A member of the RNA family "MIR394 microRNA precursor family" from Nyssa sinensis, 154 nucleotides long. A search with the family's covariance model found it, with a score of 88 bits. On this family, see Jones-Rhoades and Bartel, Mol Cell 2004: "Computational identification of plant microRNAs and their targets, including a stress-induced miRNA". The organism belongs to Nyssa, within Eukaryota.
[Rfam]
RNA sequence: CUUACAGAGUUUAUUGGCAUUCUGUCCACCUCCUAUCAGAAAUAACAACAAAACAAUAAAUAACAACUCUCCCCCCCCCCUCCCCCCCCCCGGGCUUCUCUCUCUCUCUCUCUCUCAUAUGGAGGUGGACAUACUGCCAACUGAGCUCUGUUGG
Numbered sequence: 001c002u003u004a005c006a007g008a009g010u011u012u013a014u015u016g017g018c019a020u021u022c023u024g025u026c027c028a029c030c031u032c033c034u035a036u037c038a039g040a041a042a043u044a045a046c047a048a049c050a051a052a053a054c055a056a057u058a059a060a061u062a063a064c065a066a067c068u069c070u071c072c073c074c075c076c077c078c079c080c081u082c083c084c085c086c087c088c089c090c091c092g093g094g095c096u097u098c099u100c101u102c103u104c105u106c107u108c109u110c111u112c113u114c115u116c117a118u119a120u121g122g123a124g125g126u127g128g129a130c131a132u133a134c135u136g137c138c139a140a141c142u143g144a145g146c147u148c149u150g151u152u153g154g
Stems, first nucleotide, its partner, number of pairs: 011144001014140006023131011